[Rfam]
RNA sequence: AUGUUUCUUCAGGGCAGGGUGUAAAUCCCUACCGGCGGUGAUAGUCCGCGACUCCCUUUGGGGACUGAACCGGUGUAAUUCCGGUACCGACGGUGAUAGUCCGGAUGAAAGAAGAGGCAG
Numbered sequence: 001a002u003g004u005u006u007c008u009u010c011a012g013g014g015c016a017g018g019g020u021g022u023a024a025a026u027c028c029c030u031a032c033c034g035g036c037g038g039u040g041a042u043a044g045u046c047c048g049c050g051a052c053u054c055c056c057u058u059u060g061g062g063g064a065c066u067g068a069a070c071c072g073g074u075g076u077a078a079u080u081c082c083g084g085u086a087c088c089g090a091c092g093g094u095g096a097u098a099g100u101c102c103g104g105a106u107g108a109a110a111g112a113a114g115a116g117g118c119a120g
Stems, first nucleotide, its partner, number of pairs: 003118008017029003031100002033089002035049004044087002053064002069085005091103003
Dot-bracket structure: ..((((((((......(((.......))).[[((((((.....[[))))...((........))....(((((.......)))))]])).(((.....]]))).......))))))))..
The family of this 120-nucleotide RNA sequence from Odoribacter splanchnicus is "FMN riboswitch aptamer (RFN element)".
The RFN element is a highly conserved domain that is found frequently in the 5'-untranslated regions of prokaryotic mRNAs that encode for flavin mononucleotide (FMN) biosynthesis and transport proteins.
It scores 114 bits against the family's covariance model.
Pairs were carried over by alignment from the consensus structure, which is taken from published work.